[Rfam]
RNA sequence: CUACAAACCCGAGCUAUCGUGCUACACUUGUGUAGUAAGGAAAGUCCGGACAGCACAGGGCAAUCUACCGGUGAAUAGCCGGGUUCCGGGCAACCGGAAACAGCAAGUGCCACAGAAAAUAACCGCCCCGCAAGGGGUAAGGGUGAAAAUGUGAGGUAAGAGCUCACGUCCCCCUAUGGUAACAUAGGGGGAGGGUAAACCUUAGAUGCUGUAAUGCCAUGUAUAGGUUCGCUAUAGGGCGGCUCGUCCAAUGAACCAGGGUAGGCAGCACCAGGUGGGCAGUAAUGACCAUCGCAGAUAAAUGAUAGUUUAGAAACAGAAUCCGGCUUAUGAGGUUUGUAGUUAU
Dot-bracket structure: (((((((((.((((((((.(((((((....)))))))....[[[.[[[[[((((...[[[[.((((((((((.....)))))(((((((....)))))).)((...(((((...........(((((((....)))))..)).......((((((.......))))))..((((((((....))))))))...)))..)))))))))))))...((((.......(((((......((((.]]]]))))...)))))......))))......(((((.((....)).)))))..........)))))))...........]]]]]]]].)..)))))))))....